The record is a 455-nucleotide part of an RNA from Entomophaga aulicae, which matches "Eukaryotic large subunit ribosomal RNA" in Rfam. The sequence is in the family's curated seed alignment. The family's consensus secondary structure is taken from published work. Lineage of the source: Eukaryota > Opisthokonta > Fungi > Entomophthoromycetes > Entomophaga.
RNA sequence: GGUAGUAGCAAGUAUUCAAAUGAAACAUCUGAAGACUGAAGUGGGGAAGGGUUCUGUGGUCACAUUAUUUGCCCACAGGUUAUUCGAUCCUAAGGUGUAGCGAACGCUGUUCAAUGAAUUGUACCUCAACUUUUUAAGUUGACGAUAAAGAUUUGACACCGAAAGGGAAUUCAGUUGAUAUUCUGAAAAUUGGAUGUAAGAUAAGGCGGUAACGGCGAGCCUGGAGACGCUAAAAUAAACCCUGGGAAGAGUUAUCUUUUCUAUUUAACACUAUGACUGACCUUGGAAACAGUUUAACUGGAGAUAAGGUUAGUAAAGUGUAAGAGCAGCCCUUUAUUGGGAGGUCCGGCGUGUUUAUUCUAGCCCUUGAAAAUCCAGAGAAGCUUAUAUAAAAUCUUACACCAAGUCGUACCCAUAACCGCAGCAGGUCCUCAAGGUGAACAGCCUCUAGUUGA
Numbered sequence: 001g002g003u004a005g006u007a008g009c010a011a012g013u014a015u016u017c018a019a020a021u022g023a024a025a026c027a028u029c030u031g032a033a034g035a036c037u038g039a040a041g042u043g044g045g046g047a048a049g050g051g052u053u054c055u056g057u058g059g060u061c062a063c064a065u066u067a068u069u070u071g072c073c074c075a076c077a078g079g080u081u082a083u084u085c086g087a088u089c090c091u092a093a094g095g096u097g098u099a100g101c102g103a104a105c106g107c108u109g110u111u112c113a114a115u116g117a118a119u120u121g122u123a124c125c126u127c128a129a130c131u132u133u134u135u136a137a138g139u140u141g142a143c144g145a146u147a148a149a150g151a152u153u154u155g156a157c158a159c160c161g162a163a164a165g166g167g168a169a170u171u172c173a174g175u176u177g178a179u180a181u182u183c184u185g186a187a188a189a190u191u192g193g194a195u196g197u198a199a200g201a202u203a204a205g206g207c208g209g210u211a212a213c214g215g216c217g218a219g220c221c222u223g224g225a226g227a228c229g230c231u232a233a234a235a236u237a238a239a240c241c242c243u244g245g246g247a248a249g250a251g252u253u254a255u256c257u258u259u260u261c262u263a264u265u266u267a268a269c270a271c272u273a274u275g276a277c278u279g280a281c282c283u284u285g286g287a288a289a290c291a292g293u294u295u296a297a298c299u300g301g302a303g304a305u306a307a308g309g310u311u312a313g314u315a316a317a318g319u320g321u322a323a324g325a326g327c328a329g330c331c332c333u334u335u336a337u338u339g340g341g342a343g344g345u346c347c348g349g350c351g352u353g354u355u356u357a358u359u360c361u362a363g364c365c366c367u368u369g370a371a372a373a374u375c376c377a378g379a380g381a382a383g384c385u386u387a388u389a390u391a392a393a394a395u396c397u398u399a400c401a402c403c404a405a406g407u408c409g410u411a412c413c414c415a416u417a418a419c420c421g422c423a424g425c426a427g428g429u430c431c432u433c434a435a436g437g438u439g440a441a442c443a444g445c446c447u448c449u450a451g452u453u454g455a
Stems, first nucleotide, its partner, number of pairs: 015033004020028001034453004043433004049413002054078006063071002085409003089166002094160002100107002117153003170187005190405004195401005200395001205216001207214002221378005229364004234359007242349003245265002248262003269320004280310006290300003327344001330341003419428002435447004